[Rfam]
RNA sequence: CAACCUUUGCCACACUCUGGCCAUUACCGUCCGAUUUCUAUCGGAAUUACAAGCUCCACGGUAACGGCCUAUUUUGACGCAAAGAAGAUAAAAUUUCUUGACCUGUUACUCACCGCGAUAUCUUUUCGGAAAGGAUUUCUUUUUCGAGGUGGAUAUAGUGGUCCAUCUUUGUUGGUCUACAU
Numbered sequence: 001c002a003a004c005c006u007u008u009g010c011c012a013c014a015c016u017c018u019g020g021c022c023a024u025u026a027c028c029g030u031c032c033g034a035u036u037u038c039u040a041u042c043g044g045a046a047u048u049a050c051a052a053g054c055u056c057c058a059c060g061g062u063a064a065c066g067g068c069c070u071a072u073u074u075u076g077a078c079g080c081a082a083a084g085a086a087g088a089u090a091a092a093a094u095u096u097c098u099u100g101a102c103c104u105g106u107u108a109c110u111c112a113c114c115g116c117g118a119u120a121u122c123u124u125u126u127c128g129g130a131a132a133g134g135a136u137u138u139c140u141u142u143u144u145c146g147a148g149g150u151g152g153a154u155a156u157a158g159u160g161g162u163c164c165a166u167c168u169u170u171g172u173u174g175g176u177c178u179a180c181a182u
Stems, first nucleotide, its partner, number of pairs: 007082003019069004025063004030044002033041001100177004113161004118156006
The record is a 182-nucleotide RNA sequence from Talaromyces stipitatus, which matches "Small nucleolar RNA snR80" in Rfam. Rfam classes the family as an H/ACA-box small nucleolar RNA. Its Rfam clan is "SNORA28 clan".